RNA sequence: CGGUAGGUGUGCUCCCAGCGGCCCUGCUCCUCCAGCAGCGCGGUGUGGCCGAAGAACCGGCCGUCGCCGCGCACGCCGAGCACCGCCUCGUCGCCGUACUCGCCGGCGCCGAUCUGGUUGACCUUGCCGUGGGCGAUCAGGACCACCCGGUCGACGGCGUGCCCGGCCUCGGCGAUCGUCUCGCCGGGCGCGUACUCGCGCUGGACGAAGCGGUCGGCCAGCGUCCGCAGCGUGUACUCGUCGUCAUAGCCGCGCAGCGGCGGCAGCUCGCCGAGCUCCUGCGGGACGACCCGCACGUCGGAGCCCUCGACGACGAAGGUGACGAUGCCGUCGCCGACGGUGUAGGUGAGCCGCCGGUUCACCCGGUACAUCCCACCGGACGCCUGCACCCACGGCAGCAGCUUCAGCAGCCACCGCGAGGUGAUGCUCUGCAUCUGGGGGACGGACUUGGUCGUCGUCGCCAGGUUGCGCGCAGCGGUCGUCGCAAGGCUGACCUGCUGUUCGGUCA
Number, nucleotide and partner (000 for none) at each position: 001c000002g000003g000004u000005a000006g390007g389008u388009g387010u386011g385012c000013u000014c382015c000016c000017a000018g328019c327020g000021g000022c324023c000024c000025u322026g000027c000028u319029c318030c000031u316032c315033c000034a000035g000036c000037a000038g000039c312040g311041c000042g000043g308044u000045g306046u000047g000048g305049c301050c300051g299052a298053a000054g233055a000056a000057c230058c000059g228060g000061c000062c000063g224064u223065c111066g110067c000068c108069g000070c000071g000072c000073a000074c000075g103076c000077c102078g101079a100080g099081c000082a097083c096084c000085g094086c093087c000088u000089c000090g000091u000092c000093g086094c085095c000096g083097u082098a000099c080100u079101c078102g077103c075104c000105g000106g000107c000108g068109c000110c066111g065112a000113u000114c000115u000116g000117g222118u221119u220120g219121a000122c217123c216124u000125u000126g000127c212128c000129g000130u209131g000132g206133g199134c198135g197136a000137u000138c000139a000140g000141g191142a000143c000144c000145a000146c188147c187148c186149g185150g184151u183152c178153g177154a000155c000156g000157g173158c172159g000160u000161g000162c000163c000164c000165g000166g000167c000168c000169u000170c000171g000172g158173c157174g000175a000176u000177c153178g152179u000180c000181u000182c000183g151184c150185c149186g148187g147188g146189c000190g000191c141192g000193u000194a000195c000196u000197c135198g134199c133200g000201c000202u000203g000204g000205a000206c132207g000208a000209a130210g000211c000212g127213g000214u000215c000216g123217g122218c000219c120220a119221g118222c117223g064224u063225c000226c000227g000228c059229a000230g057231c000232g000233u054234g296235u295236a000237c293238u000239c000240g290241u289242c288243g287244u286245c285246a000247u000248a000249g000250c000251c281252g280253c000254g278255c000256a277257g276258c275259g000260g271261c270262g269263g000264c000265a000266g000267c000268u000269c262270g261271c260272c000273g000274a000275g258276c257277u256278c254279c000280u252281g251282c000283g000284g000285g245286a244287c243288g242289a241290c240291c000292c000293g237294c000295a235296c234297g000298u052299c051300g050301g049302a000303g000304c000305c048306c045307u000308c043309g000310a000311c040312g039313a000314c000315g032316a031317a000318g029319g028320u000321g000322a025323c000324g022325a000326u000327g019328c018329c342330g341331u340332c339333g000334c000335c000336g000337a000338c000339g332340g331341u330342g329343u000344a000345g000346g000347u000348g000349a000350g000351c379352c378353g377354c000355c000356g374357g373358u000359u000360c000361a371362c000363c000364c000365g000366g000367u000368a000369c000370a000371u361372c000373c357374c356375a000376c000377c353378g352379g351380a000381c000382g014383c000384c000385u011386g010387c009388a008389c007390c006391c431392a430393c000394g428395g427396c426397a425398g000399c423400a422401g000402c000403u418404u000405c416406a000407g415408c000409a000410g000411c000412c000413a000414c000415c407416g405417c000418g403419a000420g000421g000422u400423g399424a000425u397426g396427c395428u394429c000430u392431g391432c000433a000434u000435c000436u000437g476438g000439g000440g473441g000442a000443c470444g469445g000446a467447c465448u464449u463450g462451g461452u460453c000454g000455u000456c000457g000458u000459c000460g452461c451462c450463a449464g448465g447466u000467u446468g000469c444470g443471c000472g000473c440474a000475g000476c437477g507478g506479u000480c000481g501482u500483c000484g498485c497486a496487a000488g495489g000490c000491u000492g000493a000494c000495c488496u486497g485498c484499u000500g482501u481502u000503c000504g000505g000506u478507c477508a000
Notes:
Saccharopolyspora sRNA 350: a 508-nucleotide RNA from Actinomadura viridilutea. The organism belongs to Actinomadura, within Bacteria. Rfam classes the family as an antisense RNA. Gene Ontology term of the family: regulation of secondary metabolite biosynthetic process. The base pairs follow the family's consensus structure, which was predicted with RNAfold. The match comes from Rfam's covariance-model search (174 bits).